[Rfam]
RNA sequence: GGAGUGAGUCGGGCGGUCGCUGGUGACUUCGGUUGCUGGAGGAAAGUCCGGGCUCCAUAGGAGACGGUGGUGGGUAACGCCCACCGUUCGUGAGAAUAGGGAAAGUGCAGCAGAGAACAGACCGCCGAUGGCCCUGGCAUGAAAAUGUCGGGGCACAGGUAAGGGUGAAACGGUGCGGUAAGAGCGCACCAGCGGGAUGGGUGACCAUACCGGCUUGGUAAACCCCACCGGGAGCAAGAUCAAGCAGAGAGAAGCGGCUCGCCGCACGGUUUUUCCGAACCGUCCGACUCUCGGGUCGAUCGCGUCGAGGGGACUGGCAACAGUCCUCCCAGAGAAAUGACCGUCCACGACAAAACCCGGCUUACAGACUCACUCCGUUU
Numbered sequence: 001g002g003a004g005u006g007a008g009u010c011g012g013g014c015g016g017u018c019g020c021u022g023g024u025g026a027c028u029u030c031g032g033u034u035g036c037u038g039g040a041g042g043a044a045a046g047u048c049c050g051g052g053c054u055c056c057a058u059a060g061g062a063g064a065c066g067g068u069g070g071u072g073g074g075u076a077a078c079g080c081c082c083a084c085c086g087u088u089c090g091u092g093a094g095a096a097u098a099g100g101g102a103a104a105g106u107g108c109a110g111c112a113g114a115g116a117a118c119a120g121a122c123c124g125c126c127g128a129u130g131g132c133c134c135u136g137g138c139a140u141g142a143a144a145a146u147g148u149c150g151g152g153g154c155a156c157a158g159g160u161a162a163g164g165g166u167g168a169a170a171c172g173g174u175g176c177g178g179u180a181a182g183a184g185c186g187c188a189c190c191a192g193c194g195g196g197a198u199g200g201g202u203g204a205c206c207a208u209a210c211c212g213g214c215u216u217g218g219u220a221a222a223c224c225c226c227a228c229c230g231g232g233a234g235c236a237a238g239a240u241c242a243a244g245c246a247g248a249g250a251g252a253a254g255c256g257g258c259u260c261g262c263c264g265c266a267c268g269g270u271u272u273u274u275c276c277g278a279a280c281c282g283u284c285c286g287a288c289u290c291u292c293g294g295g296u297c298g299a300u301c302g303c304g305u306c307g308a309g310g311g312g313a314c315u316g317g318c319a320a321c322a323g324u325c326c327u328c329c330c331a332g333a334g335a336a337a338u339g340a341c342c343g344u345c346c347a348c349g350a351c352a353a354a355a356c357c358c359g360g361c362u363u364a365c366a367g368a369c370u371c372a373c374u375c376c377g378u379u380u
Base pairs, nucleotide, nucleotide: 001376002375003374004373005372006371007370008369009368010367011365012345013344014343015342016341017340018339020039021038022037023036024035025034026033027032044363045362046361048360049359050358051357052356053234054233055232056231060276061275062274063273065230066229067228068227069226070084071083072082073081074080085099086097087096088095089094100225101224105223106222107219108218122164123163124160125159126158129155130154132152133151134150172190173189174188175187176186177185192214193212194211195210197208198207199206200205238301239300240299241298247292248291249290250289251288267282268281269280270279271278309328310327311326312325313324314323315322316321
Background: Bacterial RNase P class A: a 380-nucleotide RNA from Rubinisphaera italica. Ribonuclease P (RNase P) is a ubiquitous endoribonuclease, found in archaea, bacteria and eukarya as well as chloroplasts and mitochondria. Rfam classes the family as a ribozyme.